[Rfam]
RNA sequence: GCCGUCCUUAUCUUGGGGUUGCGCGGCUGCUCAAUGAACGCGUGGUGAGAGCAGCACUGCUAACGCCUGAGCAACACGUACGCGCCCGCACCGCGGGGCGCGGCGCAAUUUUUGGAACC
Dot-bracket structure: .....((((.....))))..(((..(((((((.....((.....))..)))))))..))).....................(((((.(..........)..))))).............
RNA: U4atac minor spliceosomal RNA